[Rfam]
RNA sequence: CGGGCGGUGUAGUCCCACCGCUCGCCCUCCUCGCCGAGCAGCGUCCGGUCGCCGAAGAACCGGCCGUCGGCCAGCACCCCCAGGUCGAUCUGGUCGCCGUACUCGCCCCGGCCGACCAGCCGGACCUUCCCGUGCGCGAUGAGGUAGACCGCGUCCACCGGCCGGCCCGCCUCCACCAGCACGUCGCCGGGCUCGAACUCGCGCUGGGUGAACCUCCCGGCGAGGGCCUCCAGCGCCGGUUCGUUCUCGAACCCGCGCAGCGGCGGCAGCUCCCCCAGCUCGCGCGGGAUCACCCGCACGUCGGCUCCGGUGGACACGAACGUGACGAUGCCGUCGCCCACGGUGUAGGCGAGCCGGCGGUUCACCCGGUAGGCCCCGCCGGCCGCCUGCACCCACGGCAGCAGCUUCAGCAGCCACCGGGAGGAGAUGGCCUGCAUCUGCGGCACGGUCUUGGUCGUCGUGGCCAGGUUCCGCGCUGCCGCGGUGCCCAGGCUGAGCUGCUGUUCGG
Numbered sequence: 001c002g003g004g005c006g007g008u009g010u011a012g013u014c015c016c017a018c019c020g021c022u023c024g025c026c027c028u029c030c031u032c033g034c035c036g037a038g039c040a041g042c043g044u045c046c047g048g049u050c051g052c053c054g055a056a057g058a059a060c061c062g063g064c065c066g067u068c069g070g071c072c073a074g075c076a077c078c079c080c081c082a083g084g085u086c087g088a089u090c091u092g093g094u095c096g097c098c099g100u101a102c103u104c105g106c107c108c109c110g111g112c113c114g115a116c117c118a119g120c121c122g123g124a125c126c127u128u129c130c131c132g133u134g135c136g137c138g139a140u141g142a143g144g145u146a147g148a149c150c151g152c153g154u155c156c157a158c159c160g161g162c163c164g165g166c167c168c169g170c171c172u173c174c175a176c177c178a179g180c181a182c183g184u185c186g187c188c189g190g191g192c193u194c195g196a197a198c199u200c201g202c203g204c205u206g207g208g209u210g211a212a213c214c215u216c217c218c219g220g221c222g223a224g225g226g227c228c229u230c231c232a233g234c235g236c237c238g239g240u241u242c243g244u245u246c247u248c249g250a251a252c253c254c255g256c257g258c259a260g261c262g263g264c265g266g267c268a269g270c271u272c273c274c275c276c277a278g279c280u281c282g283c284g285c286g287g288g289a290u291c292a293c294c295c296g297c298a299c300g301u302c303g304g305c306u307c308c309g310g311u312g313g314a315c316a317c318g319a320a321c322g323u324g325a326c327g328a329u330g331c332c333g334u335c336g337c338c339c340a341c342g343g344u345g346u347a348g349g350c351g352a353g354c355c356g357g358c359g360g361u362u363c364a365c366c367c368g369g370u371a372g373g374c375c376c377c378g379c380c381g382g383c384c385g386c387c388u389g390c391a392c393c394c395a396c397g398g399c400a401g402c403a404g405c406u407u408c409a410g411c412a413g414c415c416a417c418c419g420g421g422a423g424g425a426g427a428u429g430g431c432c433u434g435c436a437u438c439u440g441c442g443g444c445a446c447g448g449u450c451u452u453g454g455u456c457g458u459c460g461u462g463g464c465c466a467g468g469u470u471c472c473g474c475g476c477u478g479c480c481g482c483g484g485u486g487c488c489c490a491g492g493c494u495g496a497g498c499u500g501c502u503g504u505u506c507g508g
Stems, first nucleotide, its partner, number of pairs: 006393007014385001018330001021327001022325004028319002036315001039312002044310002048308001051305005057236001060233001062231002066227002068114004080105001082103002086099002089096001120225002125220002132213002134209002137206002141202001143200001146199002152195002158191002161188001163186001165180001169176001239297002243293002247289002252286001254284004259280003263274001265272001332345004354382007365373002394434002397431001399429002402426001406421003410418001440479004446473003450468006480507002483502003490499002